Rfam assigns this 162-nucleotide RNA sequence from Diplocarpon coronariae to the family "Small nucleolar RNA snR80". The family's consensus secondary structure was predicted with WAR. Its family is annotated with nucleolus and RNA processing in the Gene Ontology. Clan: SNORA28 clan. By type it is an H/ACA-box small nucleolar RNA. For this family Rfam cites "Genome-wide searching for pseudouridylation guide snoRNAs: analysis of the Saccharomyces cerevisiae genome" (Schattner et al., Nucleic Acids Res, 2004).

[Rfam]
RNA sequence: ACUCGCUUCAAACACUCUGGGACUUGCCCUCUUUCCUUCUUGGAUCGAUUCAAUCUGUGGCAUAUCCCUAUUUUUGGAAAGCGAAGACGGAUAUGUCCGAUUACUCACCGCGAUAUCUUGCCCUCGGGAGUGGAUAUAGUGGUCCAUAUCUUUGGACGAAAC
Numbered sequence: 001a002c003u004c005g006c007u008u009c010a011a012a013c014a015c016u017c018u019g020g021g022a023c024u025u026g027c028c029c030u031c032u033u034u035c036c037u038u039c040u041u042g043g044a045u046c047g048a049u050u051c052a053a054u055c056u057g058u059g060g061c062a063u064a065u066c067c068c069u070a071u072u073u074u075u076g077g078a079a080a081g082c083g084a085a086g087a088c089g090g091a092u093a094u095g096u097c098c099g100a101u102u103a104c105u106c107a108c109c110g111c112g113a114u115a116u117c118u119u120g121c122c123c124u125c126g127g128g129a130g131u132g133g134a135u136a137u138a139g140u141g142g143u144c145c146a147u148a149u150c151u152u153u154g155g156a157c158g159a160a161a162c
Base pairs, nucleotide, nucleotide: 006081007080008079019068020067021066022065025062026061027060028059030048031047034044035043036042095157096156097155098154108142109141110140111139113137114136115135117133118132